[Rfam]
RNA sequence: UGGGGAAUGGUGUAACGGUAGCACAACAGACUCUGACUCUGUUUGUCUAGGUUCAAAUCCUAGUUCCCCAG
Numbered sequence: 001u002g003g004g005g006a007a008u009g010g011u012g013u014a015a016c017g018g019u020a021g022c023a024c025a026a027c028a029g030a031c032u033c034u035g036a037c038u039c040u041g042u043u044u045g046u047c048u049a050g051g052u053u054c055a056a057a058u059c060c061u062a063g064u065u066c067c068c069c070a071g
Base pairs, nucleotide, nucleotide: 001070002069003068004067005066006065007064010024011023012022013021026042027041028040029039030038047063048062049061050060051059
This 71-nucleotide sequence from Tardiphaga sp. belongs to the Rfam family "tRNA". It scores 66 bits against the family's covariance model. It is annotated as a transfer RNA. Lineage of the source: Bacteria > Pseudomonadati > Alphaproteobacteria > Nitrobacteraceae > Tardiphaga.